[Rfam]
Shown here is a 114-nucleotide RNA from Lactobacillus xujianguonis, a member of the family "FMN riboswitch aptamer (RFN element)". The family's consensus secondary structure is taken from published work. The match comes from Rfam's covariance-model search (90 bits). Taxonomically the source falls in Lactobacillus (Bacteria, Bacillati, Bacillota, Bacilli).
RNA sequence: AAUGUUCUUCGAGGCAGGGUGAAAUUCCCGACCGGCGGUAAAGUCCGCAACCCGCGUAAGCGGUGGAACCCUUUUGGGUACCGAUAGUUACAGUCUAGAUGGAAGAAGAAUAAU
Numbered sequence: 001a002a003u004g005u006u007c008u009u010c011g012a013g014g015c016a017g018g019g020u021g022a023a024a025u026u027c028c029c030g031a032c033c034g035g036c037g038g039u040a041a042a043g044u045c046c047g048c049a050a051c052c053c054g055c056g057u058a059a060g061c062g063g064u065g066g067a068a069c070c071c072u073u074u075u076g077g078g079u080a081c082c083g084a085u086a087g088u089u090a091c092a093g094u095c096u097a098g099a100u101g102g103a104a105g106a107a108g109a110a111u112a113a114u
Stems, first nucleotide, its partner, number of pairs: 003112008017029003031094002033083002035048004043081002052063002068079004085097003